[Rfam]
RNA sequence: GAUGCCUGACGGGAAGGAUCCUUUAGUACGAGAGGAACGGGGAUUCGUAGCCUCUAGUUCAUCAGUUGUCUGGCAAGGCACUGCUGAGCAGCCACGCUGUAAGGGAUAAGAGCUGAAAGCAUCUAAGCUCGAAACUCCCCCGGAAAAGAGGCAUCUUAGAACGCUCAUAAAUGAUGAGUUUGAUAGGACUGGGGUGUAAGUAUCAAGGUUUUCCGAGAUAUUCAGCCCGCAGUUACUAACGUUUGCUUC
Numbered sequence: 001g002a003u004g005c006c007u008g009a010c011g012g013g014a015a016g017g018a019u020c021c022u023u024u025a026g027u028a029c030g031a032g033a034g035g036a037a038c039g040g041g042g043a044u045u046c047g048u049a050g051c052c053u054c055u056a057g058u059u060c061a062u063c064a065g066u067u068g069u070c071u072g073g074c075a076a077g078g079c080a081c082u083g084c085u086g087a088g089c090a091g092c093c094a095c096g097c098u099g100u101a102a103g104g105g106a107u108a109a110g111a112g113c114u115g116a117a118a119g120c121a122u123c124u125a126a127g128c129u130c131g132a133a134a135c136u137c138c139c140c141c142g143g144a145a146a147a148g149a150g151g152c153a154u155c156u157u158a159g160a161a162c163g164c165u166c167a168u169a170a171a172u173g174a175u176g177a178g179u180u181u182g183a184u185a186g187g188a189c190u191g192g193g194g195u196g197u198a199a200g201u202a203u204c205a206a207g208g209u210u211u212u213c214c215g216a217g218a219u220a221u222u223c224a225g226c227c228c229g230c231a232g233u234u235a236c237u238a239a240c241g242u243u244u245g246c247u248u249c
Stems, first nucleotide, its partner, number of pairs: 001155007010142004016046008047100005055094001057092001062087005067080005103137003110130005159244004163179005184238003187234005192228003200221005207214001
The family of this 249-nucleotide part of an RNA from Candidatus Methanomassiliicoccus intestinalis is "Archaeal large subunit ribosomal RNA".
NCBI's taxonomy places the organism under Archaea, Methanomassiliicoccales, Methanomassiliicoccaceae, Methanomassiliicoccus, Candidatus Methanomassiliicoccus intestinalis.
The family is grouped with related families in Rfam's "LSU clan".
The base pairs follow the family's consensus structure, which is taken from published work.